[Rfam]
RNA sequence: CUUGAGGUAGCCGAAAAUCAUAUAGAGUAGGCA
Numbered sequence: 001c002u003u004g005a006g007g008u009a010g011c012c013g014a015a016a017a018u019c020a021u022a023u024a025g026a027g028u029a030g031g032c033a
Stems, first nucleotide, its partner, number of pairs: 003020003010032003